About this RNA: Shown here is a 73-nucleotide sequence from Parnassius apollo, a member of the family "mir-929 microRNA precursor family". Lineage of the source: Eukaryota > Protostomia > Altocrustacea > Dicondylia > Parnassius. Its family is annotated with RISC complex and miRNA-mediated post-transcriptional gene silencing in the Gene Ontology. The match comes from Rfam's covariance-model search (82 bits).
[Rfam]
RNA sequence: UGAUGUGAAAUUGACUCUAGUAGGGAGUCCGUUUUAACGCGCGACUCCCUAAUCGAGUCAGGUUGACUUCUUU
Number, nucleotide and partner (000 for none) at each position: 001u000002g000003a000004u000005g000006u000007g000008a000009a000010a000011u061012u060013g059014a058015c057016u056017c055018u000019a000020g000021u051022a050023g049024g048025g047026a046027g045028u044029c043030c000031g000032u000033u000034u000035u000036a000037a000038c000039g000040c000041g000042c000043g029044a028045c027046u026047c025048c024049c023050u022051a021052a000053u000054c000055g017056a016057g015058u014059c013060a012061g011062g000063u000064u000065g000066a000067c000068u000069u000070c000071u000072u000073u000